Record summary: This 133-nucleotide RNA belongs to the Rfam family "Small nucleolar RNA SNORA15". For this family Rfam cites "RNomics: an experimental approach that identifies 201 candidates for novel, small, non-messenger RNAs in mouse" (Huttenhofer et al., EMBO J, 2001). The family's consensus secondary structure was predicted with RNAfold. The sequence is in the family's curated seed alignment. Rfam classes the family as an H/ACA-box small nucleolar RNA.
Nucleotides: 133
Stems, first nucleotide, its partner, number of pairs: 001053006014040006064126003067122007080115013
Number, partner (000 for none) and nucleotide at each position: 001053g002052c003051a004050u005049g006048g007000c008000c009000g010000a011000a012000u013000a014040c015039u016038g017037u018036g019035u020000u021000u022000u023000u024000a025000u026000c027000a028000g029000u030000a031000g032000u033000u034000u035019a036018c037017a038016c039015a040014g041000c042000c043000a044000g045000a046000c047000a048006c049005c050004a051003u052002g053001c054000a055000a056000a057000a058000g059000c060000a061000g062000u063000c064126u065125u066124c067122c068121c069120u070119u071118u072117a073116g074000a075000a076000u077000g078000a079000c080115u081114g082113a083112u084111g085110g086109u087108a088107u089106g090105c091104u092103a093000a094000g095000g096000u097000u098000u099000u100000u101000c102000a103092u104091a105090g106089c107088a108087u109086a110085u111084c112083a113082u114081u115080a116073u117072u118071a119070a120069a121068g122067g123000u124066g125065a126064a127000u128000a129000c130000a131000a132000a133000u